A member of the RNA family "Small nucleolar RNA SNORA68" from Bos taurus, 134 nucleotides long. For this family Rfam cites "The family of box ACA small nucleolar RNAs is defined by an evolutionarily conserved secondary structure and ubiquitous sequence elements essential for RNA accumulation" (Ganot et al., Genes Dev, 1997).
[Rfam]
RNA sequence: CAAGCACCUAAACCCAAGAACUGCUGUUUCUUGUAGCAGUGGUUUAAACAGAGGUGCUAACAGCAAAUGUUACCUCGUCGCCUUUGUGGGGCUGCAGCCGUGCCCCUCAAAGUGAAUUUGGAGGUUCUACACAC
Numbered sequence: 001c002a003a004g005c006a007c008c009u010a011a012a013c014c015c016a017a018g019a020a021c022u023g024c025u026g027u028u029u030c031u032u033g034u035a036g037c038a039g040u041g042g043u044u045u046a047a048a049c050a051g052a053g054g055u056g057c058u059a060a061c062a063g064c065a066a067a068u069g070u071u072a073c074c075u076c077g078u079c080g081c082c083u084u085u086g087u088g089g090g091g092c093u094g095c096a097g098c099c100g101u102g103c104c105c106c107u108c109a110a111a112g113u114g115a116a117u118u119u120g121g122a123g124g125u126u127c128u129a130c131a132c133a134c
Stems, first nucleotide, its partner, number of pairs: 003058007019044010069127001072125005082112005088106005
Rfam's curators write: U68 is a member of the H/ACA class of small nucleolar RNAs (snoRNAs) which act as guides in the the modification of uridines to pseudouridines. The base pairs follow the family's consensus structure, which was predicted with PFOLD.